[Rfam]
RNA sequence: UAGUUAUUCUUGUCAGCAAGGUUAAGCGUGAGCGAGCCGCAGCGAAAGCGAGUCUGAAUAGGGCGUUAAGUUGGCAGGAAUAGACGCGAAGCGGGAUGAUCUACCCUUGGCCAGGUUGAAGGUGAGGUAACACUCACUGGAGGACCGAACCGGUGUUUGUUGAAAAAAGCUCGGAUGAGCUGAGGGUAGGGGUGAAAGGCUAAUCAAAUUCCGUGAUAGCUCGUU
Numbered sequence: 001u002a003g004u005u006a007u008u009c010u011u012g013u014c015a016g017c018a019a020g021g022u023u024a025a026g027c028g029u030g031a032g033c034g035a036g037c038c039g040c041a042g043c044g045a046a047a048g049c050g051a052g053u054c055u056g057a058a059u060a061g062g063g064c065g066u067u068a069a070g071u072u073g074g075c076a077g078g079a080a081u082a083g084a085c086g087c088g089a090a091g092c093g094g095g096a097u098g099a100u101c102u103a104c105c106c107u108u109g110g111c112c113a114g115g116u117u118g119a120a121g122g123u124g125a126g127g128u129a130a131c132a133c134u135c136a137c138u139g140g141a142g143g144a145c146c147g148a149a150c151c152g153g154u155g156u157u158u159g160u161u162g163a164a165a166a167a168a169g170c171u172c173g174g175a176u177g178a179g180c181u182g183a184g185g186g187u188a189g190g191g192g193u194g195a196a197a198g199g200c201u202a203a204u205c206a207a208a209u210u211c212c213g214u215g216a217u218a219g220c221u222c223g224u225u
Stems, first nucleotide, its partner, number of pairs: 005082013020038004026033002042049002052064004085223002088220001092213006101189011112177001114146004121138006150174003155170004191201003
Record summary: Bacterial large subunit ribosomal RNA: a 225-nucleotide part of an RNA from Granulicella sp. WH15. Rfam links the family to the GO terms structural constituent of ribosome and ribosome. The match comes from Rfam's covariance-model search (2900 bits).